Shown here is a 95-nucleotide RNA sequence from Abrus precatorius, a member of the family "Small nucleolar RNA R64/Z200 family".

[Rfam]
RNA sequence: GUUCUGCAGUGAUGAUUUAAGAAUCAAAUUCACAUGUCAGACUUCAGAGAUUUUCUAAAUCAAUGAGAAUGACAAUCUUCGAAACUGAGCAGAAU
Numbered sequence: 001g002u003u004c005u006g007c008a009g010u011g012a013u014g015a016u017u018u019a020a021g022a023a024u025c026a027a028a029u030u031c032a033c034a035u036g037u038c039a040g041a042c043u044u045c046a047g048a049g050a051u052u053u054u055c056u057a058a059a060u061c062a063a064u065g066a067g068a069a070u071g072a073c074a075a076u077c078u079u080c081g082a083a084a085c086u087g088a089g090c091a092g093a094a095u
Stems, first nucleotide, its partner, number of pairs: 001095007049061004
The family has 14 seed sequences and 748 matches in Rfam 15.1.
Lineage of the source: Eukaryota > Streptophyta > Euphyllophyta > Mesangiospermae > Abrus.
Rfam links the family to the GO terms RNA processing and nucleolus.
The match comes from Rfam's covariance-model search (91 bits).
A reference for the family is Marker et al. (2002), "Experimental RNomics: identification of 140 candidates for small non-messenger RNAs in the plant Arabidopsis thaliana", Curr Biol.